[Rfam]
RNA sequence: AUUCAUCUUCGGGGCAGGGUGAAAUUCCCGAUCGGCGGUAUUAGAAGAUUUAUUUCUUGAGCCCGCGAGCCGUAAUUGGCAGGAUUUGGUUAGAUUCCAAAGCCGACAGUAUAGUCUGGAUGGGAGAAGGUGAAG
Numbered sequence: 001a002u003u004c005a006u007c008u009u010c011g012g013g014g015c016a017g018g019g020u021g022a023a024a025u026u027c028c029c030g031a032u033c034g035g036c037g038g039u040a041u042u043a044g045a046a047g048a049u050u051u052a053u054u055u056c057u058u059g060a061g062c063c064c065g066c067g068a069g070c071c072g073u074a075a076u077u078g079g080c081a082g083g084a085u086u087u088g089g090u091u092a093g094a095u096u097c098c099a100a101a102g103c104c105g106a107c108a109g110u111a112u113a114g115u116c117u118g119g120a121u122g123g124g125a126g127a128a129g130g131u132g133a134a135g
Base pairs, nucleotide, nucleotide: 003133004132005131006130007129008128009127010126017029018028019027031115032114033105034104035066036065037064038063061103062102071079085101086100087099088098089097107118108117109116
RNA: FMN riboswitch aptamer (RFN element)
Organism: Psychrobacillus sp. FJAT-21963